A member of the RNA family "Listeria sRNA rli38" from Bacilli bacterium VT-13-104, 151 nucleotides long. The organism belongs to Bacilli, within Bacteria. A reference for the family is Toledo-Arana et al. (2009), "The Listeria transcriptional landscape from saprophytism to virulence", Nature.

[Rfam]
RNA sequence: AUUGAGUGGGAAUAAGAGGCUAACUUGAUUUGAAGAGAGAACGCUGAUUUAACAGCAUUUAUCCUACUCAAAAAUGAAGAAAAUGUAUAAAAAAUGAUAUAGUUCCCUACCAAAAACCCUACCAAGAAAAAAUUUUGGUAGGGAAUUUUUU
Numbered sequence: 001a002u003u004g005a006g007u008g009g010g011a012a013u014a015a016g017a018g019g020c021u022a023a024c025u026u027g028a029u030u031u032g033a034a035g036a037g038a039g040a041a042c043g044c045u046g047a048u049u050u051a052a053c054a055g056c057a058u059u060u061a062u063c064c065u066a067c068u069c070a071a072a073a074a075u076g077a078a079g080a081a082a083a084u085g086u087a088u089a090a091a092a093a094a095u096g097a098u099a100u101a102g103u104u105c106c107c108u109a110c111c112a113a114a115a116a117c118c119c120u121a122c123c124a125a126g127a128a129a130a131a132a133u134u135u136u137g138g139u140a141g142g143g144a145a146u147u148u149u150u151u
Stems, first nucleotide, its partner, number of pairs: 008107005049083002053079001058074003062070001086096003114147002117143010